This 106-nucleotide RNA sequence from Promicromonospora citrea belongs to the Rfam family "TPP riboswitch aptamer (THI element)". The organism belongs to Promicromonospora, within Bacteria. Its family is annotated with thiamine pyrophosphate binding in the Gene Ontology. The match comes from Rfam's covariance-model search (64 bits).
[Rfam]
RNA sequence: GCGAUCCCACGGGUGCCCCGCGCAGGGGCUGAGAUCGGGCUGGACGGCCCGGGACCGUUGAACCUGUCCGGUUAACACCGGCGUAGGAAGCAGGAGUCUGAUGAUG
Numbered sequence: 001g002c003g004a005u006c007c008c009a010c011g012g013g014u015g016c017c018c019c020g021c022g023c024a025g026g027g028g029c030u031g032a033g034a035u036c037g038g039g040c041u042g043g044a045c046g047g048c049c050c051g052g053g054a055c056c057g058u059u060g061a062a063c064c065u066g067u068c069c070g071g072u073u074a075a076c077a078c079c080g081g082c083g084u085a086g087g088a089a090g091c092a093g094g095a096g097u098c099u100g101a102u103g104a105u106g
Stems, first nucleotide, its partner, number of pairs: 006094002008090001009058004014052001015029005036051005063087004068081004
From the family's description: Vitamin B(1) in its active form thiamin pyrophosphate (TPP) is an essential coenzyme that is synthesised by coupling of pyrimidine and thiazole moieties in bacteria. The family's consensus secondary structure is taken from published work.